[Rfam]
RNA sequence: UCUGAUAUUAUCUGUAAGGAUUAUAUAAGUUCAUAAUACGGAUGAACGUUUCUACUAACUGCCGCAAAUAGUUAUCUAUAACCGCUUUUAUAGAUAUA
Numbered sequence: 001u002c003u004g005a006u007a008u009u010a011u012c013u014g015u016a017a018g019g020a021u022u023a024u025a026u027a028a029g030u031u032c033a034u035a036a037u038a039c040g041g042a043u044g045a046a047c048g049u050u051u052c053u054a055c056u057a058a059c060u061g062c063c064g065c066a067a068a069u070a071g072u073u074a075u076c077u078a079u080a081a082c083c084g085c086u087u088u089u090a091u092a093g094a095u096a097u098a
Stems, first nucleotide, its partner, number of pairs: 019083001021081005029047006056074006
Notes:
The family of this 98-nucleotide RNA sequence from Eubacterium sp. CAG:161 is "Purine riboswitch aptamer". A reference for the family is Mandal et al. (2003), "Riboswitches Control Fundamental Biochemical Pathways in Bacillus subtilis and Other Bacteria", Cell. NCBI's taxonomy places the organism under Bacteria, Bacillota, Clostridia, Eubacteriaceae, Eubacterium.